[Rfam]
RNA sequence: AUUGAAGAGUUUUUCCGAGUCAUAUUUUCUAAAGUAUUUUACUAAGAGAAUAUGACCUUUGGGUACAAGAAGAAAUUCUUGCACCUCCCGUAAUUUGGAAAGGAAAAAUACUAUUUUGCUA
Number, nucleotide and partner (000 for none) at each position: 001a000002u000003u000004g114005a000006a112007g000008a000009g000010u000011u107012u106013u105014u104015c103016c102017g000018a000019g056020u055021c054022a053023u052024a051025u050026u049027u048028u047029c046030u000031a000032a000033a043034g042035u041036a040037u000038u000039u000040u036041a035042c034043u033044a000045a000046g029047a028048g027049a026050a025051u024052a023053u022054g021055a020056c019057c000058u000059u000060u000061g086062g085063g084064u083065a000066c081067a080068a079069g078070a077071a076072g000073a000074a000075a000076u071077u070078c069079u068080u067081g066082c000083a064084c063085c062086u061087c098088c097089c000090g000091u000092a000093a000094u000095u000096u000097g088098g087099a000100a000101a000102g016103g015104a014105a013106a012107a011108a000109u000110a000111c000112u006113a000114u004115u000116u000117u000118g000119c000120u000121a000
Shown here is a 121-nucleotide RNA from Anaerosolibacter carboniphilus, a member of the family "Molybdenum/Tungsten riboswitch aptamer (Moco RNA motif)". On this family, see Weinberg et al., Nucleic Acids Res 2007: "Identification of 22 candidate structured RNAs in bacteria using the CMfinder comparative genomics pipeline". It scores 80 bits against the family's covariance model. The base pairs follow the family's consensus structure, which is taken from published work.